[Rfam]
RNA sequence: AGUCAAGCCUUUUCGGCACCGGUUCCGGUGAUGGGGUCUCUUUUGCCUGUUGAAAGGUGAAGAGACAUG
Numbered sequence: 001a002g003u004c005a006a007g008c009c010u011u012u013u014c015g016g017c018a019c020c021g022g023u024u025c026c027g028g029u030g031a032u033g034g035g036g037u038c039u040c041u042u043u044u045g046c047c048u049g050u051u052g053a054a055a056g057g058u059g060a061a062g063a064g065a066c067a068u069g
Stems, first nucleotide, its partner, number of pairs: 010064004017059004023055002026052003030048001034044003

The family of this 69-nucleotide RNA from Shinella fusca is "S-element". This family represents a group of S-elements from p42d and related plasmids. The S-element has multiple functions and is believed to act as a negative regulator of repC transcription, be required for efficient replication and act as a translational enhancer of repC. Its family is annotated with translation regulator activity and mRNA transcription in the Gene Ontology. A search with the family's covariance model found it, with a score of 51 bits. The family's consensus secondary structure is taken from published work.